pemK RNA: a 96-nucleotide RNA from Acetonema longum.
RNA sequence: AUAAUGAAACUCCCGUAUAGCUCUCGUCCGAACAGAGAAAAACUGUCGCAGGCAAAGGUACGGCUGCAUAGAGGUGCAGGGGUGAAAUUCCCGUGG
Numbered sequence: 001a002u003a004a005u006g007a008a009a010c011u012c013c014c015g016u017a018u019a020g021c022u023c024u025c026g027u028c029c030g031a032a033c034a035g036a037g038a039a040a041a042a043c044u045g046u047c048g049c050a051g052g053c054a055a056a057g058g059u060a061c062g063g064c065u066g067c068a069u070a071g072a073g074g075u076g077c078a079g080g081g082g083u084g085a086a087a088u089u090c091c092c093g094u095g096g
Base pairs, nucleotide, nucleotide: 012093013063014062015061016060017059018058064079065078066077067076068075069074080092081091082090
It is annotated as a cis-regulatory element.